Rfam assigns this 59-nucleotide RNA from Heterostelium album to the family "Class I RNA from Dictyostelium". Dictyostelium Class I RNA was first reported for Aspegren et al. 2004 in Dictyostelium discoideum. Sucgang et al. 2011 identify putative homologs of Class I RNA in D. discoideum and D. purpureum. Avesson et al. 2011 report that Class I RNA present a down regulation during the development of social amoeba Dictyostelium discoideum, they also found that deletion of one of the Class I RNAs, DdR-21, results in aberrant development. Kjellin et al. 2020 report an extended number of expressed Class I RNA genes in class Dictyostelia, in their analysis they remark that Class I RNA appear to be unique to dictyostelid social amoebas, and they hypothesise that Class I RNAs were involved in evolution of multicellularity in Dictyostelia. The sequence is in the family's curated seed alignment. On this family, see Aspegren et al., Nucleic Acids Res 2004: "Novel non-coding RNAs in Dictyostelium discoideum and their expression during development". Lineage of the source: Eukaryota > Amoebozoa > Evosea > Heterostelium > Heterostelium album.
[Rfam]
RNA sequence: GAUCUCAUCACAGCAAUCAAAUCAAUUCUCAAUUUAACUGAAAAACCCCCUGAGAUCUG
Numbered sequence: 001g002a003u004c005u006c007a008u009c010a011c012a013g014c015a016a017u018c019a020a021a022u023c024a025a026u027u028c029u030c031a032a033u034u035u036a037a038c039u040g041a042a043a044a045a046c047c048c049c050c051u052g053a054g055a056u057c058u059g
Stems, first nucleotide, its partner, number of pairs: 001057006